The record is a 50-nucleotide RNA sequence from Nocardioides mesophilus, which matches "L31-Actinobacteria ribosomal protein leader" in Rfam.
[Rfam]
RNA sequence: CUGGUUCCGGUUCACGUCCUCGCAGCAGAGCGACGGACGACCCGGCGACU
Numbered sequence: 001c002u003g004g005u006u007c008c009g010g011u012u013c014a015c016g017u018c019c020u021c022g023c024a025g026c027a028g029a030g031c032g033a034c035g036g037a038c039g040a041c042c043c044g045g046c047g048a049c050u
Stems, first nucleotide, its partner, number of pairs: 003050003007045004015039005020033003

Taxonomically the source falls in Nocardioides (Bacteria, Actinomycetota, Actinomycetes, Propionibacteriales). It scores 44 bits against the family's covariance model.